The family of this 275-nucleotide RNA sequence from Rhinopithecus roxellana is "Mason-Pfizer monkey virus packaging signal". Rfam's curators write: This family represents a group of sequences that are related to the Mason-Pfizer monkey virus (MPMV) packaging signal. Rfam classes the family as a cis-regulatory element.

RNA sequence: UGGCGCCCGAACAGGGACCUGGACAUGGGGGAAAAAGUGAGGAAGAAGGCACUAAAGUCGGCCAAAAGUGAAAGUGGAAGAAAUUCCUCCGGACGUCACAGGAGCCUGCCGCGUUGGAACCAGAGAUGAGUAAUAGUGUCUGAUUAUGGGACAAGAAUUAAGCCAGCAUCAAAUUUAUGUAGGGCAAUUAAAAGAGGCUUUAAAAACACGAGGAGUAAAGGUUAAAAGUAAUGAUUUGUUUAUUUUUUUUGAUUUUCUAAAAGAAACCUGCCCUU
Numbered sequence: 001u002g003g004c005g006c007c008c009g010a011a012c013a014g015g016g017a018c019c020u021g022g023a024c025a026u027g028g029g030g031g032a033a034a035a036a037g038u039g040a041g042g043a044a045g046a047a048g049g050c051a052c053u054a055a056a057g058u059c060g061g062c063c064a065a066a067a068g069u070g071a072a073a074g075u076g077g078a079a080g081a082a083a084u085u086c087c088u089c090c091g092g093a094c095g096u097c098a099c100a101g102g103a104g105c106c107u108g109c110c111g112c113g114u115u116g117g118a119a120c121c122a123g124a125g126a127u128g129a130g131u132a133a134u135a136g137u138g139u140c141u142g143a144u145u146a147u148g149g150g151a152c153a154a155g156a157a158u159u160a161a162g163c164c165a166g167c168a169u170c171a172a173a174u175u176u177a178u179g180u181a182g183g184g185c186a187a188u189u190a191a192a193a194g195a196g197g198c199u200u201u202a203a204a205a206a207c208a209c210g211a212g213g214a215g216u217a218a219a220g221g222u223u224a225a226a227a228g229u230a231a232u233g234a235u236u237u238g239u240u241u242a243u244u245u246u247u248u249u250u251g252a253u254u255u256u257c258u259a260a261a262a263g264a265a266a267c268c269u270g271c272c273c274u275u
Stems, first nucleotide, its partner, number of pairs: 006031003013026001015024001038046001085126002087123002094116001097113001099111001101109001134154001136152002139150004159202003162198003209251007219237006260275002263272001